RNA sequence: GACGAUCUGGAGAGAGGUGCCGCAAGGCACCCACCGAAGGGGAUGCCCGCUUCGCCCGCGAGGGUGGCCGGGUCACGCUCUCAGGUACAGGGACAGAUGGGGGCAG
Number, nucleotide and partner (000 for none) at each position: 001g000002a000003c100004g000005a098006u097007c096008u095009g094010g000011a000012g000013a000014g000015a000016g031017g030018u029019g028020c000021c000022g000023c000024a000025a000026g000027g000028c019029a018030c017031c016032c000033a086034c085035c084036g082037a081038a000039g000040g080041g079042g078043a000044u000045g000046c000047c072048c000049g000050c000051u000052u000053c000054g000055c000056c000057c000058g000059c000060g000061a000062g000063g000064g000065u000066g000067g000068c000069c000070g000071g000072g047073u000074c000075a000076c000077g000078c042079u041080c040081u037082c036083a000084g035085g034086u033087a000088c000089a000090g000091g000092g000093a000094c009095a008096g007097a006098u005099g000100g003101g000102g000103g000104c000105a000106g000
Shown here is a 106-nucleotide sequence from Roseomonas acroporae, a member of the family "Glycine riboswitch aptamer". A search with the family's covariance model found it, with a score of 45 bits.